[Rfam]
RNA sequence: UUGGCCACCUGGCACUGAGAACUGAAUUCCAUAGGCUGUGAGCUCUAGCAAUGCCCUGUGGACUCAGUUCUGGUGCCCGGCAGUGCUAC
Numbered sequence: 001u002u003g004g005c006c007a008c009c010u011g012g013c014a015c016u017g018a019g020a021a022c023u024g025a026a027u028u029c030c031a032u033a034g035g036c037u038g039u040g041a042g043c044u045c046u047a048g049c050a051a052u053g054c055c056c057u058g059u060g061g062a063c064u065c066a067g068u069u070c071u072g073g074u075g076c077c078c079g080g081c082a083g084u085g086c087u088a089c
Stems, first nucleotide, its partner, number of pairs: 008080002011077003018071008034055003
This 89-nucleotide RNA from Pan troglodytes belongs to the Rfam family "mir-146 microRNA precursor family". The organism belongs to Pan, within Eukaryota. The family has 33 seed sequences and 1,617 matches in Rfam 15.1. The sequence is in the family's curated seed alignment.